Rfam assigns this 84-nucleotide sequence from Camarhynchus parvulus to the family "Small nucleolar RNA SNORD35". Rfam links the family to the GO terms RNA processing and nucleolus.

[Rfam]
RNA sequence: UGCAAAUGAUGGCAAUCUCACGAUGGUCUGCCGAGCCCGUGUGGGCCUGACGACACUGCCACAUGGCUGUACUGAUGCAGGUGA
Numbered sequence: 001u002g003c004a005a006a007u008g009a010u011g012g013c014a015a016u017c018u019c020a021c022g023a024u025g026g027u028c029u030g031c032c033g034a035g036c037c038c039g040u041g042u043g044g045g046c047c048u049g050a051c052g053a054c055a056c057u058g059c060c061a062c063a064u065g066g067c068u069g070u071a072c073u074g075a076u077g078c079a080g081g082u083g084a
Stems, first nucleotide, its partner, number of pairs: 001079004
Overview
On this family, see Nicoloso et al., J Mol Biol 1996: "Intron-encoded, antisense small nucleolar RNAs: the characterization of nine novel species points to their direct role as guides for the 2'-O-ribose methylation of rRNAs". Rfam's curators write: U35 is a C/D box snoRNA located in intron 6 of ribosomal protein L13A and intron 3 of ribosomal protein S11 in humans and at homologous positions in mouse and chicken ribosomal protein genes.